Nucleotides: 086
Stems, first nucleotide, its partner, number of pairs: 012037002017032006040080004045076003048071003055065003
Number, partner (000 for none) and nucleotide at each position: 001000a002000u003000u004000c005000c006000g007000a008000u009000u010000g011000g012037g013036c014000a015000a016000a017032c018031c019030c020029g021028u022027c023000g024000a025000a026000a027022g028021g029020c030019g031018g032017g033000g034000a035000c036013g037012c038000a039000a040080a041079g042078c043077u044000a045076c046075u047074g048071g049070u050069c051000u052000a053000a054000g055065g056064g057063c058000a059000a060000c061000g062000a063057g064056c065055c066000u067000a068000u069050g070049a071048c072000a073000g074047c075046a076045g077043g078042g079041c080040u081000g082000c083000c084000g085000g086000g
Annotation
Rfam assigns this 86-nucleotide RNA from Noviherbaspirillum denitrificans to the family "c-di-GMP-I riboswitch aptamer". On this family, see Sudarsan et al., Science 2008: "Riboswitches in Eubacteria Sense the Second Messenger Cyclic Di-GMP".